[Rfam]
RNA sequence: UCCUUCCUUGUCUUGGGGUAAGUGAGCUGCUCAAUGAACGCAUAGUGAGAACAGCCCUGCUGACACCAUAACAACACAUAUGCAUCACCUGGGCUCCUGUCCAGAGCAUGGUGCAAUUUUUGAAACC
Numbered sequence: 001u002c003c004u005u006c007c008u009u010g011u012c013u014u015g016g017g018g019u020a021a022g023u024g025a026g027c028u029g030c031u032c033a034a035u036g037a038a039c040g041c042a043u044a045g046u047g048a049g050a051a052c053a054g055c056c057c058u059g060c061u062g063a064c065a066c067c068a069u070a071a072c073a074a075c076a077c078a079u080a081u082g083c084a085u086c087a088c089c090u091g092g093g094c095u096c097c098u099g100u101c102c103a104g105a106g107c108a109u110g111g112u113g114c115a116a117u118u119u120u121u122g123a124a125a126c127c
Stems, first nucleotide, its partner, number of pairs: 006018004022060003026055004031050002038046002082114006089104006
Dot-bracket structure: .....((((.....))))...(((.((((.((.....((.....))..)).))))..))).....................((((((.((((((....))))))....)))))).............